This 77-nucleotide sequence from Crocodylus porosus belongs to the Rfam family "Mammalian CPEB3 ribozyme".

[Rfam]
RNA sequence: UAAGGCAUAUGGCUGGCCAUAGCAGAAACACUCAUGGUGCGACCCUGUCAGAUUCCAGAAAAUCUGCAAAUUCUGCU
Numbered sequence: 001u002a003a004g005g006c007a008u009a010u011g012g013c014u015g016g017c018c019a020u021a022g023c024a025g026a027a028a029c030a031c032u033c034a035u036g037g038u039g040c041g042a043c044c045c046u047g048u049c050a051g052a053u054u055c056c057a058g059a060a061a062a063u064c065u066g067c068a069a070a071u072u073c074u075g076c077u
Stems, first nucleotide, its partner, number of pairs: 015044002018041001021077007029039002049066006
From the family's description: The mammalian CPEB3 ribozyme is a self cleaving RNA located in the second intron of the CPEB3 gene which belongs to a family of genes regulating messenger RNA polyadenylation.
The match comes from Rfam's covariance-model search (48 bits).